This 100-nucleotide RNA from Pectobacterium brasiliense belongs to the Rfam family "Gammaprotebacteria rimP leader". The base pairs follow the family's consensus structure, which is taken from published work. Its family is annotated with regulation of gene expression in the Gene Ontology. Lineage of the source: Bacteria > Gammaproteobacteria > Enterobacterales > Pectobacterium > Pectobacterium brasiliense. Rfam's curators put it in the seed alignment.

[Rfam]
RNA sequence: CGCUGGUUAGCGGUAUUAGGGUCCAGUUGCAUAAAGCCCCGAUUUUUCGGGGUUUUUUGUUAUUUGGCAACAAACAACUGGGCUAUUAGGCCCUUUUUUU
Numbered sequence: 001c002g003c004u005g006g007u008u009a010g011c012g013g014u015a016u017u018a019g020g021g022u023c024c025a026g027u028u029g030c031a032u033a034a035a036g037c038c039c040c041g042a043u044u045u046u047u048c049g050g051g052g053u054u055u056u057u058u059g060u061u062a063u064u065u066g067g068c069a070a071c072a073a074a075c076a077a078c079u080g081g082g083c084u085a086u087u088a089g090g091c092c093c094u095u096u097u098u099u100u
Base pairs, nucleotide, nucleotide: 033056034055035054036053037052038051039050040049041048080093081092082091083090
Dot-bracket structure: ................................(((((((((......))))))))).......................((((......)))).......